[Rfam]
The family of this 78-nucleotide RNA sequence from Schistosoma mattheei is "mir-3492 microRNA precursor family".
Gene Ontology terms of the family: RISC complex and miRNA-mediated post-transcriptional gene silencing.
A search with the family's covariance model found it, with a score of 78 bits.
Rfam 15.1 lists 21,496 matches to the family in 13 species.
The source organism's lineage runs through Eukaryota, Neodermata, Strigeidida, Schistosomatoidea and Schistosoma.
The family's consensus secondary structure was predicted with RNAalifold.
RNA sequence: AGCCUUCUAUAUCCACGCUGAGAUUUCGUCACACACCAGACCACAAGGGCUGAUGAGACUUCCAAGAUAAAUGAGGCG
Numbered sequence: 001a002g003c004c005u006u007c008u009a010u011a012u013c014c015a016c017g018c019u020g021a022g023a024u025u026u027c028g029u030c031a032c033a034c035a036c037c038a039g040a041c042c043a044c045a046a047g048g049g050c051u052g053a054u055g056a057g058a059c060u061u062c063c064a065a066g067a068u069a070a071a072u073g074a075g076g077c078g
Stems, first nucleotide, its partner, number of pairs: 002077005008071001010069004017062001020061003024058007